The record is a 161-nucleotide sequence from Arthrobacter sp. ISL-48, which matches "c-di-AMP riboswitch aptamer (ydaO/yuaA leader)" in Rfam.
[Rfam]
RNA sequence: UCCCGGAACCCACCUAAAAUUUCGGCAGAGACGGGGGACCCAGAGUCUCAGGGCAUGGCAUUAAGCCAGCCCUAGGGGUGAAGCCGCAACGCUUAGCGUGCGCGGCCGGAUGGCCUCAUCCGAACCCGACAGCUAACUCCGCAGGCGUUGAGAGGUAAUAA
Numbered sequence: 001u002c003c004c005g006g007a008a009c010c011c012a013c014c015u016a017a018a019a020u021u022u023c024g025g026c027a028g029a030g031a032c033g034g035g036g037g038a039c040c041c042a043g044a045g046u047c048u049c050a051g052g053g054c055a056u057g058g059c060a061u062u063a064a065g066c067c068a069g070c071c072c073u074a075g076g077g078g079u080g081a082a083g084c085c086g087c088a089a090c091g092c093u094u095a096g097c098g099u100g101c102g103c104g105g106c107c108g109g110a111u112g113g114c115c116u117c118a119u120c121c122g123a124a125c126c127c128g129a130c131a132g133c134u135a136a137c138u139c140c141g142c143a144g145g146c147g148u149u150g151a152g153a154g155g156u157a158a159u160a161a
Stems, first nucleotide, its partner, number of pairs: 011147001013145002020030003032141005041075001076127003084105004108121004
Notes: Gene Ontology terms of the family: cyclic-di-AMP binding and regulation of gene expression.